[Rfam]
RNA sequence: AAUAUAAAAAAUAUUAAGACUUAUAUAUGCUAGUAAUAUGGACUAGCGUUUCUACGUCUUUCCGUAAAAGAGACACUAUGAGUUGAUGAUUAUUUUAU
Numbered sequence: 001a002a003u004a005u006a007a008a009a010a011a012u013a014u015u016a017a018g019a020c021u022u023a024u025a026u027a028u029g030c031u032a033g034u035a036a037u038a039u040g041g042a043c044u045a046g047c048g049u050u051u052c053u054a055c056g057u058c059u060u061u062c063c064g065u066a067a068a069a070g071a072g073a074c075a076c077u078a079u080g081a082g083u084u085g086a087u088g089a090u091u092a093u094u095u096u097a098u
Base pairs, nucleotide, nucleotide: 018084019083020082021081022080023079024078025077029047030046031045032044033043034042056074057073058072059071060070061069